[Rfam]
RNA sequence: UUAAAUUAAAGAGCGCCAGAGCUUAAUAAAAGCUGACGAGGACUGGAGUUUAUCGAAAAUUCGGCGGAUACUCCAGAGGUGGUUACAGCCAUUACCGAAACAAAACUUCGGGAUAACUUGAAGGACAAAGGGGUAAUAAGUAACAAU
Numbered sequence: 001u002u003a004a005a006u007u008a009a010a011g012a013g014c015g016c017c018a019g020a021g022c023u024u025a026a027u028a029a030a031a032g033c034u035g036a037c038g039a040g041g042a043c044u045g046g047a048g049u050u051u052a053u054c055g056a057a058a059a060u061u062c063g064g065c066g067g068a069u070a071c072u073c074c075a076g077a078g079g080u081g082g083u084u085a086c087a088g089c090c091a092u093u094a095c096c097g098a099a100a101c102a103a104a105a106c107u108u109c110g111g112g113a114u115a116a117c118u119u120g121a122a123g124g125a126c127a128a129a130g131g132g133g134u135a136a137u138a139a140g141u142a143a144c145a146a147u
Base pairs, nucleotide, nucleotide: 020034021033022032023031024030044075045074046073047072048071053064054063055062056061081090091137092136093135094134095133096132106123107122108121109120110119111118112117
RNA: glmS glucosamine-6-phosphate activated ribozyme aptamer